Rfam assigns this 115-nucleotide RNA sequence from Gracilibacillus thailandensis to the family "SAM riboswitch aptamer (S box leader)". The family is grouped with related families in Rfam's "SAM clan". It scores 85 bits against the family's covariance model.
[Rfam]
Nucleotides: 115
Stems, first nucleotide, its partner, number of pairs: 002114007013042005021031003025085004043077004048073002050068006081107001086103006
Number, partner (000 for none) and nucleotide at each position: 001000g002114u003113c004112u005111u006110a007109u008108c009000a010000a011000g012000a013042g014041a015040g016039g017038u018000g019000g020000a021031g022030g023029g024000a025085a026084u027083g028082g029023c030022c031021c032000a033000a034000a035000g036000a037000a038017g039016c040015c041014u042013c043077g044076g045075c046074a047000a048073c049072c050068a051067u052066u053065a054064a055063g056000u057000g058000u059000u060000u061000u062000a063055c064054u065053u066052a067051a068050u069000a070000u071000a072049g073048g074046u075045g076044c077043c078000a079000a080000u081107u082028c083027c084026g085025u086103c087102u088101g089100a090099g091098u092000g093000u094000u095000u096000u097000c098091a099090c100089u101088u102087a103086g104000a105000a106000g107081a108008g109007a110006u111005a112004a113003g114002a115000g